[Rfam]
This 120-nucleotide sequence from Halopseudomonas yangmingensis belongs to the Rfam family "Ribosomal S15 leader". Its family is annotated with regulation of translation, ncRNA-mediated in the Gene Ontology. Its Rfam clan is "Ribosomal Protein S15 Leader clan". The E. coli Ribosomal S15 gene 5' UTR can form two alternative structures. One that is a series of three hairpins, The other includes a pseudoknot.
RNA sequence: GGUCAUUCCUCGUUACAAAACACGGGACAGCGUCCCGGCCUGUUACCUCAGAGGAAAUGCAUCAUGGCACUGAGCGUUGAAGAAAAGGCUGCAAUCGUAACCGAGUACAAGCGUGGCGAA
Numbered sequence: 001g002g003u004c005a006u007u008c009c010u011c012g013u014u015a016c017a018a019a020a021c022a023c024g025g026g027a028c029a030g031c032g033u034c035c036c037g038g039c040c041u042g043u044u045a046c047c048u049c050a051g052a053g054g055a056a057a058u059g060c061a062u063c064a065u066g067g068c069a070c071u072g073a074g075c076g077u078u079g080a081a082g083a084a085a086a087g088g089c090u091g092c093a094a095u096c097g098u099a100a101c102c103g104a105g106u107a108c109a110a111g112c113g114u115g116g117c118g119a120a
Base pairs, nucleotide, nucleotide: 009026010025011024012023047074048073049072050071051070053068